[Rfam]
RNA sequence: AAUGCACACAAAACCCAAAGAGCAUUAUUUAUCUAAUGUUCUUGCCAUGUGUGCAAAGAGAAAAUCUGUACCUUGUCGCCUUUCCUAUGCUGCUGUGCUACUGAAAGUGAAUUCAAGGUUCAACACUG
Number, nucleotide and partner (000 for none) at each position: 001a000002a000003u055004g054005c053006a052007c051008a050009c049010a000011a000012a000013a000014c000015c000016c000017a000018a000019a000020g041021a040022g039023c038024a037025u036026u035027a034028u000029u000030u000031a000032u000033c000034u027035a026036a025037u024038g023039u022040u021041c020042u000043u000044g000045c000046c000047a000048u000049g009050u008051g007052u006053g005054c004055a003056a000057a000058g000059a000060g000061a000062a000063a000064a000065u000066c000067u000068g121069u000070a119071c118072c117073u116074u115075g000076u000077c000078g000079c000080c107081u106082u105083u104084c103085c000086u000087a000088u000089g098090c097091u000092g000093c000094u000095g000096u000097g090098c089099u000100a000101c000102u000103g084104a083105a082106a081107g080108u000109g000110a000111a000112u000113u000114c000115a074116a073117g072118g071119u070120u000121c068122a000123a000124c000125a000126c000127u000128g000

Overview: The family of this 128-nucleotide sequence from Acipenser ruthenus is "Small nucleolar RNA SNORA68". Rfam's curators write: U68 is a member of the H/ACA class of small nucleolar RNAs (snoRNAs) which act as guides in the the modification of uridines to pseudouridines. NCBI's taxonomy places the organism under Eukaryota, Vertebrata, Gnathostomata, Actinopteri, Acipenser. Its family is annotated with RNA processing and nucleolus in the Gene Ontology. It scores 68 bits against the family's covariance model. Rfam 15.1 lists 1,079 matches to the family in 643 species.